Rfam assigns this 164-nucleotide RNA sequence from Conexibacter arvalis to the family "c-di-AMP riboswitch aptamer (ydaO/yuaA leader)".
RNA sequence: UCCAUAAGCCUGCCGAAUCCCUCCACGGAGGGAGCGGGGAACCCAACGGCGGUGGCGCACGUCGCAGCGCCACCGUUGGGGCGAAUCCGAGCGAGUCGCUCGGUAGCGCGGCCCUUUCAGCGCGAGCCCGUCAGCUAACCCCGUAGGCCGUCAAGAAAGGGGCA
Numbered sequence: 001u002c003c004a005u006a007a008g009c010c011u012g013c014c015g016a017a018u019c020c021c022u023c024c025a026c027g028g029a030g031g032g033a034g035c036g037g038g039g040a041a042c043c044c045a046a047c048g049g050c051g052g053u054g055g056c057g058c059a060c061g062u063c064g065c066a067g068c069g070c071c072a073c074c075g076u077u078g079g080g081g082c083g084a085a086u087c088c089g090a091g092c093g094a095g096u097c098g099c100u101c102g103g104u105a106g107c108g109c110g111g112c113c114c115u116u117u118c119a120g121c122g123c124g125a126g127c128c129c130g131u132c133a134g135c136u137a138a139c140c141c142c143g144u145a146g147g148c149c150g151u152c153a154a155g156a157a158a159g160g161g162g163c164a
Base pairs, nucleotide, nucleotide: 012148013147014146018033019032020031021030022029034144035143036142037141038140039139044078045077046076047075048074049073079129080128081127087103088102089101090100106123107122108121109120
Taxonomically the source falls in Conexibacter (Bacteria, Actinomycetota, Thermoleophilia, Conexibacteraceae).